[Rfam]
RNA sequence: CAUUGGGAAACCCCUCCCCACCGAGGGGCGUUUAUCUGGAAGGAUACCAUGU
Numbered sequence: 001c002a003u004u005g006g007g008a009a010a011c012c013c014c015u016c017c018c019c020a021c022c023g024a025g026g027g028g029c030g031u032u033u034a035u036c037u038g039g040a041a042g043g044a045u046a047c048c049a050u051g052u
Stems, first nucleotide, its partner, number of pairs: 011028006033046005
RNA: serC leader